[Rfam]
RNA: Small nucleolar RNA SNORD77
RNA sequence: ACAGGCUGGUGUCUGCAUAGAUCAUCAGAUUGCAUGCAGUAAGAUAAUACAUUGCUUUCUGGUUUGUUU
Number, nucleotide and partner (000 for none) at each position: 001a067002c066003a065004g064005g000006c039007u038008g037009g035010u034011g000012u000013c028014u027015g026016c000017a000018u000019a000020g000021a000022u000023c000024a000025u000026c015027a014028g013029a000030u000031u000032g000033c000034a010035u009036g000037c008038a007039g006040u000041a000042a000043g000044a056045u000046a000047a053048u000049a000050c000051a000052u000053u047054g000055c000056u044057u000058u000059c000060u000061g000062g000063u000064u004065u003066g002067u001068u000069u000